A member of the RNA family "Eukaryotic small subunit ribosomal RNA" from Leptomonas pyrrhocoris, 596 nucleotides of a longer RNA. Rfam 15.1 lists 75,755 matches to the family in 2,556 species. Clan: SSU clan. The organism belongs to Leptomonas, within Eukaryota.

RNA sequence: GGGGGAGUACGUUCGCAAGAGUGAAACUUAAAGAAAUUGACGGAAUGGCACCACAAGACGUGGAGCGUGCGGUUUAAUUUGACUCAACACGGGGAACUUUACCAGAUCCGGACAGGAUGAGGAUUGACAGAUUGAGUGUUCUUUCUCGAUUCCCUGAAUGGUGGUGCAUGGCCGCUUUUGGUCGGUGGAGUGAUUUGUUUGGUUGAUUCCGUCAACGGACGAGAUCCAAGCUGCCCAGUAGAAUUCAGAAUUGCCCAUAGGAUAGCAAACUCAUCGGCGGGUUUUACCCAACGGUGGGCCGCAUUCGGUCGAAUUCUUCUCUGCGGGAUUCCUUUGUAUUUGCACAAGGUGAAAUUUUGGGCAACAGCAGGUCUGUGAUGCUCCUCAAUGUUCUGGGCGACACGCGCACUACAAUGUCAGUGAGAACAAGAAAAACGACUUUUGUCGAACCUACUUGAUCAAAAGAGUGGGGAAACCCCGGAAUCACAUAGACCCACUUGGGACCGAGGAUUGCAAUUAUUGGUCGCGCAACGAGGAAUGUCUCGUAGGCGCAGCUCAUCAAACUGUGCCGAUUACGUCCCUGCCAUUUGUACACA
Numbered sequence: 001g002g003g004g005g006a007g008u009a010c011g012u013u014c015g016c017a018a019g020a021g022u023g024a025a026a027c028u029u030a031a032a033g034a035a036a037u038u039g040a041c042g043g044a045a046u047g048g049c050a051c052c053a054c055a056a057g058a059c060g061u062g063g064a065g066c067g068u069g070c071g072g073u074u075u076a077a078u079u080u081g082a083c084u085c086a087a088c089a090c091g092g093g094g095a096a097c098u099u100u101a102c103c104a105g106a107u108c109c110g111g112a113c114a115g116g117a118u119g120a121g122g123a124u125u126g127a128c129a130g131a132u133u134g135a136g137u138g139u140u141c142u143u144u145c146u147c148g149a150u151u152c153c154c155u156g157a158a159u160g161g162u163g164g165u166g167c168a169u170g171g172c173c174g175c176u177u178u179u180g181g182u183c184g185g186u187g188g189a190g191u192g193a194u195u196u197g198u199u200u201g202g203u204u205g206a207u208u209c210c211g212u213c214a215a216c217g218g219a220c221g222a223g224a225u226c227c228a229a230g231c232u233g234c235c236c237a238g239u240a241g242a243a244u245u246c247a248g249a250a251u252u253g254c255c256c257a258u259a260g261g262a263u264a265g266c267a268a269a270c271u272c273a274u275c276g277g278c279g280g281g282u283u284u285u286a287c288c289c290a291a292c293g294g295u296g297g298g299c300c301g302c303a304u305u306c307g308g309u310c311g312a313a314u315u316c317u318u319c320u321c322u323g324c325g326g327g328a329u330u331c332c333u334u335u336g337u338a339u340u341u342g343c344a345c346a347a348g349g350u351g352a353a354a355u356u357u358u359g360g361g362c363a364a365c366a367g368c369a370g371g372u373c374u375g376u377g378a379u380g381c382u383c384c385u386c387a388a389u390g391u392u393c394u395g396g397g398c399g400a401c402a403c404g405c406g407c408a409c410u411a412c413a414a415u416g417u418c419a420g421u422g423a424g425a426a427c428a429a430g431a432a433a434a435a436c437g438a439c440u441u442u443u444g445u446c447g448a449a450c451c452u453a454c455u456u457g458a459u460c461a462a463a464a465g466a467g468u469g470g471g472g473a474a475a476c477c478c479c480g481g482a483a484u485c486a487c488a489u490a491g492a493c494c495c496a497c498u499u500g501g502g503a504c505c506g507a508g509g510a511u512u513g514c515a516a517u518u519a520u521u522g523g524u525c526g527c528g529c530a531a532c533g534a535g536g537a538a539u540g541u542c543u544c545g546u547a548g549g550c551g552c553a554g555c556u557c558a559u560c561a562a563a564c565u566g567u568g569c570c571g572a573u574u575a576c577g578u579c580c581c582u583g584c585c586a587u588u589u590g591u592a593c594a595c596a
Stems, first nucleotide, its partner, number of pairs: 002029003011022004038594002040591003044588007053578002057542005062412001064410002067407005072401002078093004102396005108390001113156004126145002129142003160384002163382004169378001170376001171372003174368003181220003185216002187196003200211003226360004231326004237320001240317007329351001331349004336345002416493003420489003430477001454471001457468001459466002500532001504528001505526003510521001548570007